Shown here is a 225-nucleotide RNA sequence from Staphylococcus epidermidis, a member of the family "S. aureus tsr24 small RNA". Taxonomically the source falls in Staphylococcus epidermidis (Bacteria, Bacillati, Bacillota, Caryophanales). A reference for the family is Carroll et al. (2016), "Genome-wide Annotation, Identification, and Global Transcriptomic Analysis of Regulatory or Small RNA Gene Expression in Staphylococcus aureus", MBio. Rfam 15.1 lists 98 matches to the family in 21 species.
Nucleotides: 225
Stems, first nucleotide, its partner, number of pairs: 001206002021040001024039001026037003041066002044063003048060002052056001081203006090099003103108001113197005119190002122187001128180004133176004138171002141168001146163004
Number, partner (000 for none) and nucleotide at each position: 001206a002205g003000u004000c005000u006000u007000u008000a009000u010000a011000c012000a013000u014000a015000a016000g017000g018000c019000a020000c021040c022000u023000c024039g025000u026037u027036a028035a029000u030000u031000u032000a033000g034000u035028u036027u037026a038000u039024u040021g041066g042065u043000a044063u045062u046061u047000a048060u049059u050000a051000a052056a053000u054000u055000a056052u057000g058000c059049g060048a061046a062045a063044g064000g065042g066041c067000c068000u069000u070000a071000u072000u073000u074000u075000u076000c077000a078000a079000a080000a081203u082202a083201u084200u085199u086198u087000a088000a089000u090099g091098u092097a093000a094000a095000a096000u097092u098091a099090c100000a101000c102000a103108u104000a105000a106000a107000a108103a109000c110000a111000a112000a113197g114196u115195a116194u117193u118000u119190u120189g121000c122187c123000g124000a125000g126000a127000c128180u129179c130178u131177u132000g133176a134175g135174g136173g137000a138171a139170c140000a141168g142000g143000a144000c145000a146163a147162g148161u149160u150000g151000a152000a153000g154000a155000c156000u157000a158000c159000a160149g161148g162147c163146u164000g165000a166000a167000g168141c169000u170139g171138u172000c173136u174135c175134c176133u177131a178130a179129g180128a181000a182000a183000g184000c185000g186000a187122g188000c189120c190119a191000a192000c193117a194116a195115u196114a197113c198086g199085a200084a201083g202082u203081a204000u205002u206001u207000u208000a209000a210000a211000u212000a213000a214000a215000g216000a217000u218000g219000c220000c221000a222000g223000u224000a225000a